Annotation: Rfam assigns this 111-nucleotide sequence from Rhinopomastus cyanomelas to the family "Small nucleolar RNA SNORD67".

RNA sequence: AGCGAGGGUGAUGAGUUGCACUGUGGCGGGGCAAUCAUGUCGUGUGACGUGGACUCCGCUCAGAAUCUCCCUGAUGACAAAACUAAGUGCACAGGGGCCAUCUGACUCGCU
Numbered sequence: 001a002g003c004g005a006g007g008g009u010g011a012u013g014a015g016u017u018g019c020a021c022u023g024u025g026g027c028g029g030g031g032c033a034a035u036c037a038u039g040u041c042g043u044g045u046g047a048c049g050u051g052g053a054c055u056c057c058g059c060u061c062a063g064a065a066u067c068u069c070c071c072u073g074a075u076g077a078c079a080a081a082a083c084u085a086a087g088u089g090c091a092c093a094g095g096g097g098c099c100a101u102c103u104g105a106c107u108c109g110c111u
Stems, first nucleotide, its partner, number of pairs: 004110001006108003022064001024062002026059004031054001037050005
The source organism's lineage runs through Eukaryota, Eumetazoa, Sauria, Theropoda and Rhinopomastus. snoRNA HBII-166 belongs to the C/D family of snoRNAs. For this family Rfam cites "RNomics: an experimental approach that identifies 201 candidates for novel, small, non-messenger RNAs in mouse" (Huttenhofer et al., EMBO J, 2001). Rfam links the family to the GO terms nucleolus and RNA processing. The match comes from Rfam's covariance-model search (102 bits).